[Rfam]
A member of the RNA family "c-di-AMP riboswitch aptamer (ydaO/yuaA leader)" from Actinocatenispora rupis, 159 nucleotides long.
RNA sequence: CGGACGACACCGCCGAAUCGCCGCGCCGUCGCGUCGCGGCGAGCUGGGGACCCACAUUCACGGGGUGAAUCCGCUGCCCGCCCCCUGGGCCGCGGUAGGGCGAAACUUCUUCCCGCCCGAACCCGUCAGCUAACCCAACAGGCGGUUGAGGAAGAAGGA
Numbered sequence: 001c002g003g004a005c006g007a008c009a010c011c012g013c014c015g016a017a018u019c020g021c022c023g024c025g026c027c028g029u030c031g032c033g034u035c036g037c038g039g040c041g042a043g044c045u046g047g048g049g050a051c052c053c054a055c056a057u058u059c060a061c062g063g064g065g066u067g068a069a070u071c072c073g074c075u076g077c078c079c080g081c082c083c084c085c086u087g088g089g090c091c092g093c094g095g096u097a098g099g100g101c102g103a104a105a106c107u108u109c110u111u112c113c114c115g116c117c118c119g120a121a122c123c124c125g126u127c128a129g130c131u132a133a134c135c136c137a138a139c140a141g142g143c144g145g146u147u148g149a150g151g152a153a154g155a156a157g158g159a
Stems, first nucleotide, its partner, number of pairs: 011144004018042008043139001045137004053062001063124003071095004098118004